[Rfam]
RNA sequence: ACACAACCGGGAUGCAACGACCUUCGCCUCAAGUACGGUCACUCAAGGCGGAGCGAGCAAAUAGUGAGACCGACCCGGGGGAGG
Numbered sequence: 001a002c003a004c005a006a007c008c009g010g011g012a013u014g015c016a017a018c019g020a021c022c023u024u025c026g027c028c029u030c031a032a033g034u035a036c037g038g039u040c041a042c043u044c045a046a047g048g049c050g051g052a053g054c055g056a057g058c059a060a061a062u063a064g065u066g067a068g069a070c071c072g073a074c075c076c077g078g079g080g081g082a083g084g
Stems, first nucleotide, its partner, number of pairs: 002083001004081001007078005013059003022053008037071002039067005
A member of the RNA family "c-di-GMP-II-GAG riboswitch aptamer" from Deinococcus yavapaiensis, 84 nucleotides long. For this family Rfam cites "Bioinformatic analysis of riboswitch structures uncovers variant classes with altered ligand specificity" (Weinberg et al., Proc Natl Acad Sci U S A, 2017). Its family is annotated with cyclic-di-GMP binding and regulation of gene expression in the Gene Ontology. Clan: c-di-GMP_II riboswitch clan. Pairs were carried over by alignment from the consensus structure, which is taken from published work.